[Rfam]
Nucleotides: 077
Base pairs, nucleotide, nucleotide: 010044011043012042013041014040015039016038017037018036019035024030025029049070050069051068052067053066054065055064056063057062
Number, partner (000 for none) and nucleotide at each position: 001000c002000c003000g004000u005000c006000u007000c008000u009000c010044a011043g012042g013041u014040u015039c016038u017037a018036g019035c020000a021000c022000g023000g024030c025029c026000c027000u028000c029025g030024g031000a032000a033000u034000g035019g036018c037017u038016a039015g040014a041013a042012c043011u044010u045000u046000u047000a048000a049070g050069g051068c052067g053066u054065c055064a056063c057062g058000g059000g060000a061000a062057c063056g064055u065054g066053a067052c068051g069050c070049c071000u072000u073000u074000u075000u076000u077000u